[Rfam]
Notes: The family of this 93-nucleotide sequence from Nothoprocta ornata is "Small nucleolar RNA SNORD91 family". Gene Ontology terms of the family: nucleolus and RNA processing. The base pairs follow the family's consensus structure.
RNA sequence: ACAGGAAGCCUGUGAUGUUUUAGCCAUGAUGUCUGAACCUGUCUGAAGGACCCUUGUGAAGUUGCACCCUUGGGCGCUGAGGCUUCCAGAAGA
Numbered sequence: 001a002c003a004g005g006a007a008g009c010c011u012g013u014g015a016u017g018u019u020u021u022a023g024c025c026a027u028g029a030u031g032u033c034u035g036a037a038c039c040u041g042u043c044u045g046a047a048g049g050a051c052c053c054u055u056g057u058g059a060a061g062u063u064g065c066a067c068c069c070u071u072g073g074g075c076g077c078u079g080a081g082g083c084u085u086c087c088a089g090a091a092g093a
Stems, first nucleotide, its partner, number of pairs: 004087007
Record summary:
On this family, see Huttenhofer et al., EMBO J 2001: "RNomics: an experimental approach that identifies 201 candidates for novel, small, non-messenger RNAs in mouse". It is annotated as a C/D-box small nucleolar RNA.